The family of this 352-nucleotide RNA sequence from Desulfosporosinus cupriresistens is "transfer-messenger RNA".
The match comes from Rfam's covariance-model search (144 bits).
For this family Rfam cites "Phylogenetic analysis of tmRNA secondary structure" (Williams and Bartel, RNA, 1996).

RNA sequence: GGGGGCGUUCUAGACUCGCUCGGGGAAGCGGUGGCAAGAGUUGCGCGUCGAGAUUCCACCUGGUCUCGUUAAACGGUGGACCUAAUAGUUAACGAAAAUAAUUACGCCCUAGCUGCUUAAGUGCCGCUAGCAUCCUGCCUUCUGUAACCUACGGUGAAGGGCCAGGGUGUCAAAUAAGUAGGUUGCUCUAAUGUCAAUGCUCGGAGACGUUAGCUAAGAUUAUCGAGCUAGCCUGAACUGAAUCCUCUCCUUUAGGAGUCAAGACUGGCGAAACUUAAAAUAAAGGAUACACGCGUAGACGCUUUUGUGGCAGCUCUUCGAUACAGGGGUGCAAAUCCCCUCGCCUCCACCA
Numbered sequence: 001g002g003g004g005g006c007g008u009u010c011u012a013g014a015c016u017c018g019c020u021c022g023g024g025g026a027a028g029c030g031g032u033g034g035c036a037a038g039a040g041u042u043g044c045g046c047g048u049c050g051a052g053a054u055u056c057c058a059c060c061u062g063g064u065c066u067c068g069u070u071a072a073a074c075g076g077u078g079g080a081c082c083u084a085a086u087a088g089u090u091a092a093c094g095a096a097a098a099u100a101a102u103u104a105c106g107c108c109c110u111a112g113c114u115g116c117u118u119a120a121g122u123g124c125c126g127c128u129a130g131c132a133u134c135c136u137g138c139c140u141u142c143u144g145u146a147a148c149c150u151a152c153g154g155u156g157a158a159g160g161g162c163c164a165g166g167g168u169g170u171c172a173a174a175u176a177a178g179u180a181g182g183u184u185g186c187u188c189u190a191a192u193g194u195c196a197a198u199g200c201u202c203g204g205a206g207a208c209g210u211u212a213g214c215u216a217a218g219a220u221u222a223u224c225g226a227g228c229u230a231g232c233c234u235g236a237a238c239u240g241a242a243u244c245c246u247c248u249c250c251u252u253u254a255g256g257a258g259u260c261a262a263g264a265c266u267g268g269c270g271a272a273a274c275u276u277a278a279a280a281u282a283a284a285g286g287a288u289a290c291a292c293g294c295g296u297a298g299a300c301g302c303u304u305u306u307g308u309g310g311c312a313g314c315u316c317u318u319c320g321a322u323a324c325a326g327g328g329g330u331g332c333a334a335a336u337c338c339c340c341u342c343g344c345c346u347c348c349a350c351c352a
Base pairs, nucleotide, nucleotide: 001348002347003346004345005344006343007342020321021320022319023318024317025316026315031311032310034308035307036306037305038304039303040302041301044295045294046293047292048291049068050067051066052065053064055080056079057078058077059076060075109130110129111128112127113126115124116123131169132168133167134166135165136164137162138161139160140159143156144155145154147183148182149181150180151179152178188213189212190211191210192209193208194207195206199228200227201226202225203224231269232268233267235265239261240260243257244256245255248287249286250285252282325341326340327339328338329337